[Rfam]
RNA sequence: UGGCGGGGGAGCACAACAACGGGUGGAGCCUGCGGUUUAAUUGGACUCAACGCCGGAAAACUCACCAGGGGAGACAGCAAUAUGUAGGUCAAGCUGAAGACUUUACCUGAAUCGCUGAGAGGAGGUGCAUGGUCGUCGCCAGUUCGUACUGUGAAGCAUCCUGUUAAGUCAGGCAACGAGCGAGACCCGUGCCCACAGUUACCAGCGGCAUCUCCGGAUGGCCGGGUACUCUGUGGGGACCGCCGGUGUUAAAUCGGAGGAAGGUGCGGGCUACGGUAGAUCAGUAUGCCCCGAAUCUCUUGGGCUACACGCGGGCUACAAUGGACGGGACAAUGGGCAACUACACCGAAAGGUGAUGUCAAUCUCAUAAACCCGUUCGAAGUUCGGAUCGAGGAUUGAAACCCAUCCUCGUGAAGCUGGAAUCCGUAGUAAUCGCGUUUCAACAUAGCGCGGUGAAUACGUCCCUGCUCCUUGCACACACCGCCCGUCAAACCACCCGAGUGGGGUAUGGGUGAGGGUAUGGACAUCGUGCCGUAUUCAAACCUGAAUUCCGCAAGGGGGGUUAAGUCGUAACAAGG
Numbered sequence: 001u002g003g004c005g006g007g008g009g010a011g012c013a014c015a016a017c018a019a020c021g022g023g024u025g026g027a028g029c030c031u032g033c034g035g036u037u038u039a040a041u042u043g044g045a046c047u048c049a050a051c052g053c054c055g056g057a058a059a060a061c062u063c064a065c066c067a068g069g070g071g072a073g074a075c076a077g078c079a080a081u082a083u084g085u086a087g088g089u090c091a092a093g094c095u096g097a098a099g100a101c102u103u104u105a106c107c108u109g110a111a112u113c114g115c116u117g118a119g120a121g122g123a124g125g126u127g128c129a130u131g132g133u134c135g136u137c138g139c140c141a142g143u144u145c146g147u148a149c150u151g152u153g154a155a156g157c158a159u160c161c162u163g164u165u166a167a168g169u170c171a172g173g174c175a176a177c178g179a180g181c182g183a184g185a186c187c188c189g190u191g192c193c194c195a196c197a198g199u200u201a202c203c204a205g206c207g208g209c210a211u212c213u214c215c216g217g218a219u220g221g222c223c224g225g226g227u228a229c230u231c232u233g234u235g236g237g238g239a240c241c242g243c244c245g246g247u248g249u250u251a252a253a254u255c256g257g258a259g260g261a262a263g264g265u266g267c268g269g270g271c272u273a274c275g276g277u278a279g280a281u282c283a284g285u286a287u288g289c290c291c292c293g294a295a296u297c298u299c300u301u302g303g304g305c306u307a308c309a310c311g312c313g314g315g316c317u318a319c320a321a322u323g324g325a326c327g328g329g330a331c332a333a334u335g336g337g338c339a340a341c342u343a344c345a346c347c348g349a350a351a352g353g354u355g356a357u358g359u360c361a362a363u364c365u366c367a368u369a370a371a372c373c374c375g376u377u378c379g380a381a382g383u384u385c386g387g388a389u390c391g392a393g394g395a396u397u398g399a400a401a402c403c404c405a406u407c408c409u410c411g412u413g414a415a416g417c418u419g420g421a422a423u424c425c426g427u428a429g430u431a432a433u434c435g436c437g438u439u440u441c442a443a444c445a446u447a448g449c450g451c452g453g454u455g456a457a458u459a460c461g462u463c464c465c466u467g468c469u470c471c472u473u474g475c476a477c478a479c480a481c482c483g484c485c486c487g488u489c490a491a492a493c494c495a496c497c498c499g500a501g502u503g504g505g506g507u508a509u510g511g512g513u514g515a516g517g518g519u520a521u522g523g524a525c526a527u528c529g530u531g532c533c534g535u536a537u538u539c540a541a542a543c544c545u546g547a548a549u550u551c552c553g554c555a556a557g558g559g560g561g562g563u564u565a566a567g568u569c570g571u572a573a574c575a576a577g578g
Stems, first nucleotide, its partner, number of pairs: 001478002003475003007472007016462002020426005025319001027317008035308002041056004065303007075117004079112001087107003091103003121292002124290004130286002132281003135277004142181006149156002160173004187269004192237007202226002206224003209220004240260002243257005323378007335366003340359002344355004385416001390411007432454008481577001483574001486570002489567001491564004496559003501554007509546005516539008
Annotation:
The family of this 578-nucleotide part of an RNA from Methanimicrococcus blatticola is "Archaeal small subunit ribosomal RNA". The literature on the family includes a 2002 paper in BMC Bioinformatics by Cannone et al., "The comparative RNA web (CRW) site: an online database of comparative sequence and structure information for ribosomal, intron, and other RNAs". Its family is annotated with ribosome and structural constituent of ribosome in the Gene Ontology. The organism belongs to Methanimicrococcus, within Archaea.